This 84-nucleotide RNA from Actinomadura sp. BRA 177 belongs to the Rfam family "tRNA". It is annotated as a transfer RNA. It scores 54 bits against the family's covariance model. NCBI's taxonomy places the organism under Bacteria, Bacillati, Actinomycetes, Thermomonosporaceae, Actinomadura.
[Rfam]
RNA sequence: GCCGGGAUGGCGAAAUAGGCAUACGCGAAUUCCUCAAAAGAAUUUGUCCGAAAGGGCGUGCGGGUUCGAGUCCCGCUCCCGGCA
Numbered sequence: 001g002c003c004g005g006g007a008u009g010g011c012g013a014a015a016u017a018g019g020c021a022u023a024c025g026c027g028a029a030u031u032c033c034u035c036a037a038a039a040g041a042a043u044u045u046g047u048c049c050g051a052a053a054g055g056g057c058g059u060g061c062g063g064g065u066u067c068g069a070g071u072c073c074c075g076c077u078c079c080c081g082g083c084a
Stems, first nucleotide, its partner, number of pairs: 001083007010026003028044005060076005